The family of this 158-nucleotide sequence from Schizosaccharomyces pombe is "small nucleolar RNA snR90". The base pairs follow the family's consensus structure, which was predicted with RNAalifold.
RNA sequence: UUUGCACUAUUAAUCAGAAAUAGUUCACAGUUUAUGAGCGUAUUUCCUUCAUGCAGUGCAUAGAAUAAUGUUUUCAUACUCACUUUACCCUCAGGUGCUUCAAACUAACUUAGUUUGAUUUUUCGUUGCCUGCGGGCCAUACAUGUAUGAUAUAUUUC
Numbered sequence: 001u002u003u004g005c006a007c008u009a010u011u012a013a014u015c016a017g018a019a020a021u022a023g024u025u026c027a028c029a030g031u032u033u034a035u036g037a038g039c040g041u042a043u044u045u046c047c048u049u050c051a052u053g054c055a056g057u058g059c060a061u062a063g064a065a066u067a068a069u070g071u072u073u074u075c076a077u078a079c080u081c082a083c084u085u086u087a088c089c090c091u092c093a094g095g096u097g098c099u100u101c102a103a104a105c106u107a108a109c110u111u112a113g114u115u116u117g118a119u120u121u122u123u124c125g126u127u128g129c130c131u132g133c134g135g136g137c138c139a140u141a142c143a144u145g146u147a148u149g150a151u152a153u154a155u156u157u158c
Base pairs, nucleotide, nucleotide: 003060004059005058006057007056008055017046018045019044020043021042022041023039024038025037026036027035088136089135090134092132093131094130095129096128097127098125100118101117102116103115104114105113106112107111
Overview: The organism belongs to Schizosaccharomyces, within Eukaryota. The sequence is in the family's curated seed alignment.